Shown here is a 224-nucleotide RNA sequence from Burkholderia sp. lig30, a member of the family "Burkholderia sRNA Bp1_Cand871_SIPHT".
By type it is a small RNA.
The literature on the family includes a 2012 paper in BMC Genomics by Khoo et al., "Computational discovery and RT-PCR validation of novel Burkholderia conserved and Burkholderia pseudomallei unique sRNAs".
The source organism's lineage runs through Bacteria, Pseudomonadati, Pseudomonadota, Burkholderiaceae and Burkholderia.

[Rfam]
RNA sequence: UCGCCCACAAUGGGUUCCACGGUUUCAACACGGAUGCGCUCUCGUGUGCCGAGUGUGAGCGGACACGAAGCGCUGCGAGAACGUCGGUCUCGUACCGAAUCCCUACCCUGGGGCAUCCGUGUUGGAGUCGUGUUCGGCCUACGCCGAUACGUUCCAUCUUUGGUCUCCUCGCGCUAACCCCGUAGCGUGUGGUUUUUAGCGGGCUUAUGAGCCCGCUUUUUUUC
Dot-bracket structure: ....(((..........(((((((((((((.((((((..(.(...((((...((((......))))...))))....)..)..(((((.....)))))..(((......))))))))).))))))))))))).(((((....))))).............)))...((.(((((((......))))))).)).....((((((((....)))))))).......